RNA: dfrA-dnaX RNA
RNA sequence: ACACCAUAUGGUAAAACUAUAAUAAUUUCAACAUAAUAACCAAAAUUUAGCUAUAAUACAGGAAUUAUGUUAUAAU
Number, nucleotide and partner (000 for none) at each position: 001a000002c000003a000004c000005c000006a000007u000008a000009u000010g000011g000012u000013a000014a000015a000016a000017c000018u000019a000020u000021a000022a000023u000024a000025a000026u000027u000028u000029c000030a071031a070032c069033a068034u067035a066036a065037u064038a000039a000040c000041c000042a000043a000044a000045a000046u000047u000048u000049a000050g000051c000052u000053a000054u000055a000056a000057u000058a000059c000060a000061g000062g000063a000064a037065u036066u035067a034068u033069g032070u031071u030072a000073u000074a000075a000076u000